A member of the RNA family "Iron response element I" from Pipistrellus kuhlii, 36 nucleotides long.
The organism belongs to Pipistrellus, within Eukaryota.
The family's RNA type in Rfam is cis-regulatory element.
Rfam links the family to the GO term response to iron ion.
RNA sequence: GUAUUUCUUGCUUCACCAGUGUUUGGAUGGAACCAC
Numbered sequence: 001g002u003a004u005u006u007c008u009u010g011c012u013u014c015a016c017c018a019g020u021g022u023u024u025g026g027a028u029g030g031a032a033c034c035a036c
Base pairs, nucleotide, nucleotide: 001036002035005032006031007030008029010028012027013026014025015024017021